RNA sequence: GCUAGGCAUGGUGGCAUGCACCUGUAGUCCCAGCUACUCUGGAGGCUGAGGCAGGAGGAUCGCCUGAGCCCAGGAGUUCUGGGUUGUAGUGUGCUAUACCAAUCAGGUGUCCACACUAAGUUUAGCAUCAAUAAGGUGUACCCCCAGGGAGCUGGGGACCACCAGGUUGCCUAAGAAUGGGUGAACUGGUCCAGGUCAAAAAUGGAGCAGGUGAAAGUUCCCAUGCAGAUCAGUAGUGGGAUCAUGCCUGUGUAUAGCCACUGCACUCCAGCCUGGGCAACAUAGUGAGACCCCGUCUCAA
Numbered sequence: 001g002c003u004a005g006g007c008a009u010g011g012u013g014g015c016a017u018g019c020a021c022c023u024g025u026a027g028u029c030c031c032a033g034c035u036a037c038u039c040u041g042g043a044g045g046c047u048g049a050g051g052c053a054g055g056a057g058g059a060u061c062g063c064c065u066g067a068g069c070c071c072a073g074g075a076g077u078u079c080u081g082g083g084u085u086g087u088a089g090u091g092u093g094c095u096a097u098a099c100c101a102a103u104c105a106g107g108u109g110u111c112c113a114c115a116c117u118a119a120g121u122u123u124a125g126c127a128u129c130a131a132u133a134a135g136g137u138g139u140a141c142c143c144c145c146a147g148g149g150a151g152c153u154g155g156g157g158a159c160c161a162c163c164a165g166g167u168u169g170c171c172u173a174a175g176a177a178u179g180g181g182u183g184a185a186c187u188g189g190u191c192c193a194g195g196u197c198a199a200a201a202a203u204g205g206a207g208c209a210g211g212u213g214a215a216a217g218u219u220c221c222c223a224u225g226c227a228g229a230u231c232a233g234u235a236g237u238g239g240g241a242u243c244a245u246g247c248c249u250g251u252g253u254a255u256a257g258c259c260a261c262u263g264c265a266c267u268c269c270a271g272c273c274u275g276g277g278c279a280a281c282a283u284a285g286u287g288a289g290a291c292c293c294c295g296u297c298u299c300a301a
Base pairs, nucleotide, nucleotide: 001046002045003044004023005022006021009018010017028043029042030041048299049298050297051296052295054293055292060288061287062286063285068278069277070276071275072274073273074272079271080270081269082268083267085265086264087263088262089261090260091259093258094257095256096255097254098253099252104250105249106248107247108246109245110244111240112239114238115237116236117235118234120231122229123228125226126225127224128223129169130168131167132166135163136162137161138160141157142156143155145154146153147152171175179220180219181218182217187214189212190211191210196205197204198203